[Rfam]
RNA sequence: GCGCGUAAGCCGCCCGGUGGAUGGCUCGGCUCGGGCGCCGACGAAGGGCGUGGCAAGCUGCGAUAAGCCCGGGGGAGGCGCACGCAGCCGUCGAACCCGGGAUCCCCGAAUGGGACUUCCUGCCGGGGGCGAACAGCCCCCGGCGCGGGGAGAACCCGCGGGAACCCCCCGAACGGAAACAUCUUAGUAGGGGGAGGAAGAGAAACCACCACGGGAUCCCCCGAGUAGGGGCGACCGAAAGGGGGGUAGCCCAAACCAAUUCCCCACGGGAUAACCGUGGGGAGAUGAGGGGUGGAUGCCCCGCGGCUCCCCCUCGAGGGGAGGGGCCCGACCCUCGGUACCCGAACUCCGGUGGAAGUCCGGGGCCGUAGAGGGUGACAGCCCCGUAGGGGAAACCGAGGGGGGCCCUGCCGCGGGGAUGAGUACCACGGCUUGGUAUUGCCGUGGGAAGCUGGGUGGCACCAGCAUCCAAGGCUAAACACGUCCCGAGACCGAUAGCGAACUAGGUACCGUGAGGGAAAGCUGAAAAGCACCCCUGGCGGGGGGUGAAAAGAGCCUGAAACCGGGCGGUCACACAG
Numbered sequence: 001g002c003g004c005g006u007a008a009g010c011c012g013c014c015c016g017g018u019g020g021a022u023g024g025c026u027c028g029g030c031u032c033g034g035g036c037g038c039c040g041a042c043g044a045a046g047g048g049c050g051u052g053g054c055a056a057g058c059u060g061c062g063a064u065a066a067g068c069c070c071g072g073g074g075g076a077g078g079c080g081c082a083c084g085c086a087g088c089c090g091u092c093g094a095a096c097c098c099g100g101g102a103u104c105c106c107c108g109a110a111u112g113g114g115a116c117u118u119c120c121u122g123c124c125g126g127g128g129g130c131g132a133a134c135a136g137c138c139c140c141c142g143g144c145g146c147g148g149g150g151a152g153a154a155c156c157c158g159c160g161g162g163a164a165c166c167c168c169c170c171g172a173a174c175g176g177a178a179a180c181a182u183c184u185u186a187g188u189a190g191g192g193g194g195a196g197g198a199a200g201a202g203a204a205a206c207c208a209c210c211a212c213g214g215g216a217u218c219c220c221c222c223g224a225g226u227a228g229g230g231g232c233g234a235c236c237g238a239a240a241g242g243g244g245g246g247u248a249g250c251c252c253a254a255a256c257c258a259a260u261u262c263c264c265c266a267c268g269g270g271a272u273a274a275c276c277g278u279g280g281g282g283a284g285a286u287g288a289g290g291g292g293u294g295g296a297u298g299c300c301c302c303g304c305g306g307c308u309c310c311c312c313c314u315c316g317a318g319g320g321g322a323g324g325g326g327c328c329c330g331a332c333c334c335u336c337g338g339u340a341c342c343c344g345a346a347c348u349c350c351g352g353u354g355g356a357a358g359u360c361c362g363g364g365g366c367c368g369u370a371g372a373g374g375g376u377g378a379c380a381g382c383c384c385c386g387u388a389g390g391g392g393a394a395a396c397c398g399a400g401g402g403g404g405g406c407c408c409u410g411c412c413g414c415g416g417g418g419a420u421g422a423g424u425a426c427c428a429c430g431g432c433u434u435g436g437u438a439u440u441g442c443c444g445u446g447g448g449a450a451g452c453u454g455g456g457u458g459g460c461a462c463c464a465g466c467a468u469c470c471a472a473g474g475c476u477a478a479a480c481a482c483g484u485c486c487c488g489a490g491a492c493c494g495a496u497a498g499c500g501a502a503c504u505a506g507g508u509a510c511c512g513u514g515a516g517g518g519a520a521a522g523c524u525g526a527a528a529a530g531c532a533c534c535c536c537u538g539g540c541g542g543g544g545g546g547u548g549a550a551a552a553g554a555g556c557c558u559g560a561a562a563c564c565g566g567g568c569g570g571u572c573a574c575a576c577a578g
Stems, first nucleotide, its partner, number of pairs: 009571009023557001024523002028493002030490006036483002046107003049062003068101006077089003112121003146158004165196001166194005176183002206214002218245005228236002248476004256290002266278004302415004325407004341391003347364001349363004367371001373385003426447007454470005510517002
A member of the RNA family "Archaeal large subunit ribosomal RNA" from Ignicoccus hospitalis, 578 nucleotides of a longer RNA. The literature on the family includes a 2001 paper in Science by Yusupov et al., "Crystal structure of the ribosome at 5.5 A resolution". NCBI's taxonomy places the organism under Archaea, Desulfurococcales, Desulfurococcaceae, Ignicoccus, Ignicoccus hospitalis. Rfam's curators put it in the seed alignment.